[Rfam]
RNA: Alphaproteobacterial ar14
RNA sequence: CAGAUUUUGCAGAGCCACUCCUCCUCCCAGGCUCUGUAAAUACGACCAGCAUCUCCUCCUCCCGAUCGCUGGUCGGACCCAAACGAUGCCCGCCGGAUCUCCUCCCCGGCGGGUAUUGUUU
Numbered sequence: 001c002a003g004a005u006u007u008u009g010c011a012g013a014g015c016c017a018c019u020c021c022u023c024c025u026c027c028c029a030g031g032c033u034c035u036g037u038a039a040a041u042a043c044g045a046c047c048a049g050c051a052u053c054u055c056c057u058c059c060u061c062c063c064g065a066u067c068g069c070u071g072g073u074c075g076g077a078c079c080c081a082a083a084c085g086a087u088g089c090c091c092g093c094c095g096g097a098u099c100u101c102c103u104c105c106c107c108g109g110c111g112g113g114u115a116u117u118g119u120u121u
Stems, first nucleotide, its partner, number of pairs: 006039002010036007044074007051066002086116011